Rfam assigns this 416-nucleotide RNA from Knufia peltigerae to the family "Proteobacterial sRNA sX6". The family's consensus secondary structure was predicted with RNAalifold. The match comes from Rfam's covariance-model search (45 bits).
RNA sequence: AUACCGCGAGGAGGACUCCAUGAAGAAGUUGCUGACCAUUGCGAUCCUGGCUGCCGCCGCUGUUGCAGUGCCGAUGGUGCUGGCGCAGAACGCCGGCCAGCCUGCUCCGCAGCAGGGUGACCAGGCCGACAAGGCGCAGUCCGAAGCCGACGCCAAGGCCAAGCGCCGUGCGCAGGCCAAUGCCGAGAUGAAGGCCAAGGGCCAGCCGGUGCCGCAGCAGGAAGAAGAGGAAGAGGCGCGGAAGAAGCGUUAAGCGCAUGCGCGCUACCGCUUCCCCACGGUUUGCGGAGCAAACCGCGGGCCCCGCCUUACCACGUAUCCGAUCCCCUGCGCCUGUCGGCGCGCCCCCUUACCAAGGGGGCUUCCGGACAUAAGACGCCCCGACGCCGGGGCGUUUUUGUUUGGGUUGGUCGCAC
Numbered sequence: 001a002u003a004c005c006g007c008g009a010g011g012a013g014g015a016c017u018c019c020a021u022g023a024a025g026a027a028g029u030u031g032c033u034g035a036c037c038a039u040u041g042c043g044a045u046c047c048u049g050g051c052u053g054c055c056g057c058c059g060c061u062g063u064u065g066c067a068g069u070g071c072c073g074a075u076g077g078u079g080c081u082g083g084c085g086c087a088g089a090a091c092g093c094c095g096g097c098c099a100g101c102c103u104g105c106u107c108c109g110c111a112g113c114a115g116g117g118u119g120a121c122c123a124g125g126c127c128g129a130c131a132a133g134g135c136g137c138a139g140u141c142c143g144a145a146g147c148c149g150a151c152g153c154c155a156a157g158g159c160c161a162a163g164c165g166c167c168g169u170g171c172g173c174a175g176g177c178c179a180a181u182g183c184c185g186a187g188a189u190g191a192a193g194g195c196c197a198a199g200g201g202c203c204a205g206c207c208g209g210u211g212c213c214g215c216a217g218c219a220g221g222a223a224g225a226a227g228a229g230g231a232a233g234a235g236g237c238g239c240g241g242a243a244g245a246a247g248c249g250u251u252a253a254g255c256g257c258a259u260g261c262g263c264g265c266u267a268c269c270g271c272u273u274c275c276c277c278a279c280g281g282u283u284u285g286c287g288g289a290g291c292a293a294a295c296c297g298c299g300g301g302c303c304c305c306g307c308c309u310u311a312c313c314a315c316g317u318a319u320c321c322g323a324u325c326c327c328c329u330g331c332g333c334c335u336g337u338c339g340g341c342g343c344g345c346c347c348c349c350u351u352a353c354c355a356a357g358g359g360g361g362c363u364u365c366c367g368g369a370c371a372u373a374a375g376a377c378g379c380c381c382c383g384a385c386g387c388c389g390g391g392g393c394g395u396u397u398u399u400g401u402u403u404g405g406g407u408u409g410g411u412c413g414c415a416c
Base pairs, nucleotide, nucleotide: 018230019229025164028159029158033155034154037152039150040149050072052070053069054068056066057065076121078119079118091112094109095108096107133148134147135146167221169219170218171217177193200213201212247414248413249412261361373398374397375396376395377394378393379392380391381390382389383388